The family of this 88-nucleotide sequence from Deinococcus budaensis is "ZMP/ZTP riboswitch aptamer (pfl RNA motif)".
Pairs were carried over by alignment from the consensus structure, which is taken from published work.
[Rfam]
RNA sequence: GCGGCGGGGGGCGACUGGCGCUGAACGUGGGCCACCACGGGGAAGCUUCCCGCAUUUCAAGACUGGAUCGCGCGCCUGGGUCGGACGC
Numbered sequence: 001g002c003g004g005c006g007g008g009g010g011g012c013g014a015c016u017g018g019c020g021c022u023g024a025a026c027g028u029g030g031g032c033c034a035c036c037a038c039g040g041g042g043a044a045g046c047u048u049c050c051c052g053c054a055u056u057u058c059a060a061g062a063c064u065g066g067a068u069c070g071c072g073c074g075c076c077u078g079g080g081u082c083g084g085a086c087g088c
Stems, first nucleotide, its partner, number of pairs: 004053009015042002017076005027038004066082004